[Rfam]
RNA: Nuclear RNase P
Organism: Suillus plorans
RNA sequence: CCAGCUCAAAAACCACGAAUGCUCAUCACACACAGGAUCGCUCCAUGCAUCCAAAUUCCUGAGCGGGAUAAGGUCUGAGCAUUCUAAUCCCCCUCGAUCGGCUCCAGCAGAGCCCAGCUGUAAUUGGCUGCGCGACGUACCAGAAAAGCAGCUUCGUUUCUCAUCGUCCCCAAGAUUCUGUUCACCACAGAAGAGGGCGAGAACGAUGGCUUUGAAAACGUUGCGGGGAUCGGGCAAACCUUUACCUGUUGUUUGGUUGUCGCUAUCGCGCAUGCGUCUGUGAAGAAGCGCGUUCUUGAUUACUAGCGCAGUACGGCCGAACACCGUAUGCGUAUUGGUGGACCAACCGUGAUCUUGUGGACUAGUUGCCACUUGCUCAUCGCUGCCAGAGUCAUCAUUAAAUAAUGCUUUUUAAAGUCAAGAGGGUAAAUACCUCGGAGCAUGAGACCAACCAUCUCCUUGCGUACGAGGCGCGACUGCGGUGGGACUGGUUUGUCCUUGAGUUCACUUCGUGACUCACAUCUUUUGUGGAUUGUGAAACUCGAUUCAGACUACUCUUGGACUGG
Numbered sequence: 001c002c003a004g005c006u007c008a009a010a011a012a013c014c015a016c017g018a019a020u021g022c023u024c025a026u027c028a029c030a031c032a033c034a035g036g037a038u039c040g041c042u043c044c045a046u047g048c049a050u051c052c053a054a055a056u057u058c059c060u061g062a063g064c065g066g067g068a069u070a071a072g073g074u075c076u077g078a079g080c081a082u083u084c085u086a087a088u089c090c091c092c093c094u095c096g097a098u099c100g101g102c103u104c105c106a107g108c109a110g111a112g113c114c115c116a117g118c119u120g121u122a123a124u125u126g127g128c129u130g131c132g133c134g135a136c137g138u139a140c141c142a143g144a145a146a147a148g149c150a151g152c153u154u155c156g157u158u159u160c161u162c163a164u165c166g167u168c169c170c171c172a173a174g175a176u177u178c179u180g181u182u183c184a185c186c187a188c189a190g191a192a193g194a195g196g197g198c199g200a201g202a203a204c205g206a207u208g209g210c211u212u213u214g215a216a217a218a219c220g221u222u223g224c225g226g227g228g229a230u231c232g233g234g235c236a237a238a239c240c241u242u243u244a245c246c247u248g249u250u251g252u253u254u255g256g257u258u259g260u261c262g263c264u265a266u267c268g269c270g271c272a273u274g275c276g277u278c279u280g281u282g283a284a285g286a287a288g289c290g291c292g293u294u295c296u297u298g299a300u301u302a303c304u305a306g307c308g309c310a311g312u313a314c315g316g317c318c319g320a321a322c323a324c325c326g327u328a329u330g331c332g333u334a335u336u337g338g339u340g341g342a343c344c345a346a347c348c349g350u351g352a353u354c355u356u357g358u359g360g361a362c363u364a365g366u367u368g369c370c371a372c373u374u375g376c377u378c379a380u381c382g383c384u385g386c387c388a389g390a391g392u393c394a395u396c397a398u399u400a401a402a403u404a405a406u407g408c409u410u411u412u413u414a415a416a417g418u419c420a421a422g423a424g425g426g427u428a429a430a431u432a433c434c435u436c437g438g439a440g441c442a443u444g445a446g447a448c449c450a451a452c453c454a455u456c457u458c459c460u461u462g463c464g465u466a467c468g469a470g471g472c473g474c475g476a477c478u479g480c481g482g483u484g485g486g487a488c489u490g491g492u493u494u495g496u497c498c499u500u501g502a503g504u505u506c507a508c509u510u511c512g513u514g515a516c517u518c519a520c521a522u523c524u525u526u527u528g529u530g531g532a533u534u535g536u537g538a539a540a541c542u543c544g545a546u547u548c549a550g551a552c553u554a555c556u557c558u559u560g561g562a563c564u565g566g
Stems, first nucleotide, its partner, number of pairs: 001566004007560003014514005020065005035052004040048002075550005090228004100114005115130006132224007151210003517538005